[Rfam]
RNA: Small nucleolar RNA SNORD94
RNA sequence: AUGGCGAUGAUGAUUGGCGCAGGGGUACGGACCUCAGCUAGAUCAUGGGAGCUGAGUGUGAACUUGGCUGUUUUUCAGGGUGGCUGGCAUGUGGCCGGCUUCCUGGAAACGCGUUCACAUGAGAACUUCGCCUACAGCUGAGCCAU
Numbered sequence: 001a002u003g004g005c006g007a008u009g010a011u012g013a014u015u016g017g018c019g020c021a022g023g024g025g026u027a028c029g030g031a032c033c034u035c036a037g038c039u040a041g042a043u044c045a046u047g048g049g050a051g052c053u054g055a056g057u058g059u060g061a062a063c064u065u066g067g068c069u070g071u072u073u074u075u076c077a078g079g080g081u082g083g084c085u086g087g088c089a090u091g092u093g094g095c096c097g098g099c100u101u102c103c104u105g106g107a108a109a110c111g112c113g114u115u116c117a118c119a120u121g122a123g124a125a126c127u128u129c130g131c132c133u134a135c136a137g138c139u140g141a142g143c144c145a146u
Stems, first nucleotide, its partner, number of pairs: 001146005